RNA sequence: GUCAAAUGAAGAGAAGGGAAGAUGGGUGGCCGAUGAUUAAAUAAUCUUAUUUUUAUUUUUGAAAUGAAAUUCAAGAAUCUAAAAUAGGAUUAGUCUGCCCAUUUUUCCAUAAACGUUCAACAACUGUAUGGCUCAAAAUUAGCUUUUACGAUAUCGAUAAAUGAUUACGUGAGUAUCUAUUAUCGAUAUCCAUUCGGUUGUUCGUAUGCAAGUAUAGGAAGGUACAAAACUUUUCUAUCUGUAAAAAAUGAGACUAAUCCUUCCAAAAUCUUUGGGGGGAUUUUUAU
Numbered sequence: 001g002u003c004a005a006a007u008g009a010a011g012a013g014a015a016g017g018g019a020a021g022a023u024g025g026g027u028g029g030c031c032g033a034u035g036a037u038u039a040a041a042u043a044a045u046c047u048u049a050u051u052u053u054u055a056u057u058u059u060u061g062a063a064a065u066g067a068a069a070u071u072c073a074a075g076a077a078u079c080u081a082a083a084a085u086a087g088g089a090u091u092a093g094u095c096u097g098c099c100c101a102u103u104u105u106u107c108c109a110u111a112a113a114c115g116u117u118c119a120a121c122a123a124c125u126g127u128a129u130g131g132c133u134c135a136a137a138a139u140u141a142g143c144u145u146u147u148a149c150g151a152u153a154u155c156g157a158u159a160a161a162u163g164a165u166u167a168c169g170u171g172a173g174u175a176u177c178u179a180u181u182a183u184c185g186a187u188a189u190c191c192a193u194u195c196g197g198u199u200g201u202u203c204g205u206a207u208g209c210a211a212g213u214a215u216a217g218g219a220a221g222g223u224a225c226a227a228a229a230c231u232u233u234u235c236u237a238u239c240u241g242u243a244a245a246a247a248a249u250g251a252g253a254c255u256a257a258u259c260c261u262u263c264c265a266a267a268a269u270c271u272u273u274g275g276g277g278g279g280a281u282u283u284u285u286a287u
Stems, first nucleotide, its partner, number of pairs: 016108004023101004029095001031093001042092012057076007256282011
This 287-nucleotide sequence from Ureibacillus sinduriensis belongs to the Rfam family "Bacillus sRNA ncr1575". A search with the family's covariance model found it, with a score of 102 bits.